[Rfam]
RNA sequence: CGCACGAGAACGACAUCUAGGAGCGAGGACGGGGGACCCACCUCCCGCAAGGGAAUCGGACGUCGCACGACGUCCUUGGGGUCAAGUCCCGCGUUGACAACCGUCACCGACGGGGCCGGGCACCUCUCGCCCGAACCCGACAGCUGACUUCGUAGGCGCGUGGAGAGAGGAAAC
Numbered sequence: 001c002g003c004a005c006g007a008g009a010a011c012g013a014c015a016u017c018u019a020g021g022a023g024c025g026a027g028g029a030c031g032g033g034g035g036a037c038c039c040a041c042c043u044c045c046c047g048c049a050a051g052g053g054a055a056u057c058g059g060a061c062g063u064c065g066c067a068c069g070a071c072g073u074c075c076u077u078g079g080g081g082u083c084a085a086g087u088c089c090c091g092c093g094u095u096g097a098c099a100a101c102c103g104u105c106a107c108c109g110a111c112g113g114g115g116c117c118g119g120g121c122a123c124c125u126c127u128c129g130c131c132c133g134a135a136c137c138c139g140a141c142a143g144c145u146g147a148c149u150u151c152g153u154a155g156g157c158g159c160g161u162g163g164a165g166a167g168a169g170g171a172a173a174c
Base pairs, nucleotide, nucleotide: 001155029153030152031151032150033149034148039078040077079138080137081136087115088114089113090112118132119131120130121129
RNA: c-di-AMP riboswitch aptamer (ydaO/yuaA leader)
Organism: Gordonia mangrovi